[Rfam]
RNA sequence: GAGAUAUGAUGAGCAAUCUUAAUUGGUCCGUGUUUCUGAUUUAACCGUGACUGAUACCCAUUAAGCACACUCUGAUCUC
Numbered sequence: 001g002a003g004a005u006a007u008g009a010u011g012a013g014c015a016a017u018c019u020u021a022a023u024u025g026g027u028c029c030g031u032g033u034u035u036c037u038g039a040u041u042u043a044a045c046c047g048u049g050a051c052u053g054a055u056a057c058c059c060a061u062u063a064a065g066c067a068c069a070c071u072c073u074g075a076u077c078u079c
Stems, first nucleotide, its partner, number of pairs: 001079004